The record is a 134-nucleotide RNA sequence from Colletotrichum gloeosporioides, which matches "U4 spliceosomal RNA" in Rfam.
[Rfam]
RNA sequence: AUCCCAGUGCAGGAGUGUACACAGAUCACUGAAGCUUCGGCUGAGAUUGUGUUUUUGCUGAUGGUGGCCCUUUCACCACUGACCACUCCUAGUUGGUCUUGGCCAGCUAGAGAAUUUUUGGACCAUUUCUGUGA
Numbered sequence: 001a002u003c004c005c006a007g008u009g010c011a012g013g014a015g016u017g018u019a020c021a022c023a024g025a026u027c028a029c030u031g032a033a034g035c036u037u038c039g040g041c042u043g044a045g046a047u048u049g050u051g052u053u054u055u056u057g058c059u060g061a062u063g064g065u066g067g068c069c070c071u072u073u074c075a076c077c078a079c080u081g082a083c084c085a086c087u088c089c090u091a092g093u094u095g096g097u098c099u100u101g102g103c104c105a106g107c108u109a110g111a112g113a114a115u116u117u118u119u120g121g122a123c124c125a126u127u128u129c130u131g132u133g134a
Base pairs, nucleotide, nucleotide: 019052020051021050022049023048025047026046027045033042034041035040087112089110090109091108092107093106094105095104096103097102127134128133
The organism belongs to Colletotrichum gloeosporioides species complex, within Eukaryota.